A member of the RNA family "MIR1435 microRNA precursor family" from Brachypodium distachyon, 199 nucleotides long. Taxonomically the source falls in Brachypodium (Eukaryota, Tracheophyta, Mesangiospermae, Petrosaviidae). The base pairs follow the family's consensus structure, which was predicted with RNAalifold.
[Rfam]
RNA sequence: UCGGUUUGUCCUAAGUCAAACUUCUUAAGGUUUGACCGAGUUUAUAUAGAAAAGUGUACUAACAUCUACAAUGUCAAAUAAGUACGCUAUGAAAAUAUAUAUCAUGCCGGAUUUAAUAACUAAUUUAGAGCUGUAGUUGUUGGUAGAUUUUCUCUAAGCUUGGUCAAACUUUAAGAAGUUUGACUCAGGACAAAGCUAG
Dot-bracket structure: ....(((((.((.(((((((((((((....(((((............((((((...(((.((((.(((((...(.((((...........................................)))).)...))))).)))).)))..))))))..........)))))....))))))))))))).)).))))).....
Numbered sequence: 001u002c003g004g005u006u007u008g009u010c011c012u013a014a015g016u017c018a019a020a021c022u023u024c025u026u027a028a029g030g031u032u033u034g035a036c037c038g039a040g041u042u043u044a045u046a047u048a049g050a051a052a053a054g055u056g057u058a059c060u061a062a063c064a065u066c067u068a069c070a071a072u073g074u075c076a077a078a079u080a081a082g083u084a085c086g087c088u089a090u091g092a093a094a095a096u097a098u099a100u101a102u103c104a105u106g107c108c109g110g111a112u113u114u115a116a117u118a119a120c121u122a123a124u125u126u127a128g129a130g131c132u133g134u135a136g137u138u139g140u141u142g143g144u145a146g147a148u149u150u151u152c153u154c155u156a157a158g159c160u161u162g163g164u165c166a167a168a169c170u171u172u173a174a175g176a177a178g179u180u181u182g183a184c185u186c187a188g189g190a191c192a193a194a195g196c197u198a199g
Stems, first nucleotide, its partner, number of pairs: 005194005011188002014185013031168005048153006057145003061141004066136005074128001076126004